[Rfam]
RNA sequence: AGAAUUCGCUUCUAGGGUUCCGGUUUAGCUCAGUUAAACGUCUGGUCCGAGAGAAGCAACCGUUUCUAAUCAAACGGUCACACGGCGGGAAAAAAGCCCGGGAGAG
Numbered sequence: 001a002g003a004a005u006u007c008g009c010u011u012c013u014a015g016g017g018u019u020c021c022g023g024u025u026u027a028g029c030u031c032a033g034u035u036a037a038a039c040g041u042c043u044g045g046u047c048c049g050a051g052a053g054a055a056g057c058a059a060c061c062g063u064u065u066c067u068a069a070u071c072a073a074a075c076g077g078u079c080a081c082a083c084g085g086c087g088g089g090a091a092a093a094a095a096g097c098c099c100g101g102g103a104g105a106g
Base pairs, nucleotide, nucleotide: 008057009056010055011054012053015048016047020045021044022042023039024038025037026036027035028034059078060077061076062075063074064073065072081101083104087099088098089097

Rfam assigns this 106-nucleotide RNA from Phormidesmis priestleyi to the family "Guanidine-I riboswitch aptamer". The organism belongs to Phormidesmis priestleyi, within Bacteria. About the family: This family represents a conserved RNA structure found upstream of the ykkC and yxkD genes in Bacillus subtilis and related genes in other bacteria. The function of this family is unclear although it has been suggested that it may function to switch on efflux pumps and detoxification systems in response to harmful environmental molecules.